[Rfam]
RNA sequence: GUAUGUGUAUUCACUCCAAUCCAUAUGUGUUGGAGUGGAUUGGAAUGGAACUUAGUUUAUUUCUAUUUCAAUCAUCUUCAACACAUGUGGAUUGGGAUGAAUACACGC
Number, nucleotide and partner (000 for none) at each position: 001g000002u000003a000004u107005g106006u105007g104008u103009a102010u101011u100012c099013a098014c000015u000016c095017c094018a093019a092020u091021c090022c089023a088024u087025a086026u085027g084028u083029g082030u081031u080032g079033g000034a000035g076036u000037g000038g073039a072040u071041u070042g069043g068044a000045a066046u065047g064048g000049a000050a000051c000052u000053u000054a000055g000056u000057u000058u000059a000060u000061u000062u000063c000064u047065a046066u045067u000068u043069c042070a041071a040072u039073c038074a000075u000076c035077u000078u000079c032080a031081a030082c029083a028084c027085a026086u025087g024088u023089g022090g021091a020092u019093u018094g017095g016096g000097a000098u013099g012100a011101a010102u009103a008104c007105a006106c005107g004108c000
RNA: MIR5565 microRNA precursor family